[Rfam]
RNA: Small nucleolar RNA U3
RNA sequence: AAGAUCAUACUUCACAGGAUCAUUUCUGUAGUAUAUCUUCGGAUCUGCUCUGCGAAAUGCUGAGUUGAUGCAGCCACGAUGACGAGACAUAGCUCUCUUCCUUGAGCGUGAGAACGACUUGCAGUUUGAUUAAAGUCAGAUUGUUAGUCAUCGAUGAUCGUUCACUCUCCUUACUCAGUAGGGAGAGCAUGGGAAGUAGAGCUUUCUGAGUGGU
Numbered sequence: 001a002a003g004a005u006c007a008u009a010c011u012u013c014a015c016a017g018g019a020u021c022a023u024u025u026c027u028g029u030a031g032u033a034u035a036u037c038u039u040c041g042g043a044u045c046u047g048c049u050c051u052g053c054g055a056a057a058u059g060c061u062g063a064g065u066u067g068a069u070g071c072a073g074c075c076a077c078g079a080u081g082a083c084g085a086g087a088c089a090u091a092g093c094u095c096u097c098u099u100c101c102u103u104g105a106g107c108g109u110g111a112g113a114a115c116g117a118c119u120u121g122c123a124g125u126u127u128g129a130u131u132a133a134a135g136u137c138a139g140a141u142u143g144u145u146a147g148u149c150a151u152c153g154a155u156g157a158u159c160g161u162u163c164a165c166u167c168u169c170c171u172u173a174c175u176c177a178g179u180a181g182g183g184a185g186a187g188c189a190u191g192g193g194a195a196g197u198a199g200a201g202c203u204u205u206c207u208g209a210g211u212g213g214u
Base pairs, nucleotide, nucleotide: 001039002038003037004036005035007034008033009032010031011030015028016027017026018025019024048062052060053059073214074213075212076211077210092202093201094200095199096198098196099195101193102192103191106161107160108159116149117148118147119146122143123142124141125140126139127138128137129136165187167185168184169183170182171181172180173179